RNA: t44 RNA
Organism: Motiliproteus coralliicola
RNA sequence: AGAAAUGAAAUAUAACGUCGCACAUAUACCGACACGUCCCUCUGGGUGCCUGGUGAGUGAUCACAGGGUUGAGAGAUGGGGUAUAUGGAGGCCUAAC
Numbered sequence: 001a002g003a004a005a006u007g008a009a010a011u012a013u014a015a016c017g018u019c020g021c022a023c024a025u026a027u028a029c030c031g032a033c034a035c036g037u038c039c040c041u042c043u044g045g046g047u048g049c050c051u052g053g054u055g056a057g058u059g060a061u062c063a064c065a066g067g068g069u070u071g072a073g074a075g076a077u078g079g080g081g082u083a084u085a086u087g088g089a090g091g092c093c094u095a096a097c
Stems, first nucleotide, its partner, number of pairs: 023087008035078004040073003048069004